[Rfam]
RNA sequence: CCCCGAACGGGGUCGGUGCCGCGGAGGAGCCGGGGAACCAAGCACGUGGGGUGAAUCCGGUGUGGCACGCGGUCCGAGACCGUGGAAGCACUGGUAGGGCGAUCGUGCGUCCGAAUCCGUCAGCUCACCUGGUAGGCGUCCACACGACGAAGG
Numbered sequence: 001c002c003c004c005g006a007a008c009g010g011g012g013u014c015g016g017u018g019c020c021g022c023g024g025a026g027g028a029g030c031c032g033g034g035g036a037a038c039c040a041a042g043c044a045c046g047u048g049g050g051g052u053g054a055a056u057c058c059g060g061u062g063u064g065g066c067a068c069g070c071g072g073u074c075c076g077a078g079a080c081c082g083u084g085g086a087a088g089c090a091c092u093g094g095u096a097g098g099g100c101g102a103u104c105g106u107g108c109g110u111c112c113g114a115a116u117c118c119g120u121c122a123g124c125u126c127a128c129c130u131g132g133u134a135g136g137c138g139u140c141c142a143c144a145c146g147a148c149g150a151a152g153g
Stems, first nucleotide, its partner, number of pairs: 001027002029133006039048002049118003057094007097112004
RNA: c-di-AMP riboswitch aptamer (ydaO/yuaA leader)